[Rfam]
RNA: c-di-GMP-I riboswitch aptamer
Organism: Paenibacillus sp. yr247
RNA sequence: UAUCGACAAUAGCAAAUUCGUUGAAAGACGAAGACGCAAAGCUAUGGGUCUAAAGUCUUGUGAACAAGACUAUGAUCGCCAAGCUGCCGAA
Numbered sequence: 001u002a003u004c005g006a007c008a009a010u011a012g013c014a015a016a017u018u019c020g021u022u023g024a025a026a027g028a029c030g031a032a033g034a035c036g037c038a039a040a041g042c043u044a045u046g047g048g049u050c051u052a053a054a055g056u057c058u059u060g061u062g063a064a065c066a067a068g069a070c071u072a073u074g075a076u077c078g079c080c081a082a083g084c085u086g087c088c089g090a091a
Base pairs, nucleotide, nucleotide: 012037013036017032018031019030020029021028022027040085041084042083043082045081046080047079048076049075050074055070056069057068058067059066060065